[Rfam]
Nucleotides: 227
Stems, first nucleotide, its partner, number of pairs: 001227003005223022028200006037191010050178006057171006066164002069161003072157001074155001080147004087142003091138002093132002096129006103122001108116001
Number, partner (000 for none) and nucleotide at each position: 001227u002226g003225g004000c005223c006222a007221u008220a009219g010218a011217a012216u013215a014214a015213c016212u017211u018210a019209u020208u021207c022206u023205g024204u025203g026202g027000c028200c029199a030198c031197u032196u033195u034000g035000u036000g037191u038190u039189a040188c041187g042186a043185u044184a045183a046182u047000u048000a049000c050178u051177a052176u053175g054174c055173u056000a057171a058170u059169u060168u061167a062166c063000g064000a065000u066164a067163u068000u069161a070160u071159a072157g073000u074155a075000a076000c077000u078000c079000c080147u081146u082145a083144c084000u085000a086000a087142g088141u089140g090000a091138u092137u093132u094131a095000c096129u097128a098127u099126a100125a101124c102000a103122u104000u105000a106000u107000a108116g109000u110000a111000a112000a113000u114000a115000u116108c117000a118000u119000c120000a121000u122103g123000a124101g125100u126099u127098a128097u129096a130000a131094u132093a133000a134000c135000a136000c137092g138091a139000g140089u141088a142087u143000c144083g145082u146081a147080a148000a149000u150000a151000c152000a153000u154000a155074u156000u157072c158000a159071u160070g161069u162000u163067a164066u165000c166062g167061u168060a169059a170058a171057u172000a173055g174054g175053u176052a177051u178050a179000a180000a181000c182046a183045u184044u185043g186042u187041c188040g189039u190038a191037a192000a193000u194000c195033a196032a197031g198030g199029u200028g201000c202026u203025u204024a205023u206022a207021g208020a209019a210018u211017a212016a213015g214014u215013u216012a217011u218010u219009c220008u221007a222006u223005g224000a225003c226002c227001a

Rfam assigns this 227-nucleotide RNA sequence from Miscanthus lutarioriparius to the family "MIR6217 microRNA precursor family". Lineage of the source: Eukaryota > Streptophyta > Magnoliopsida > Andropogonodae > Miscanthus.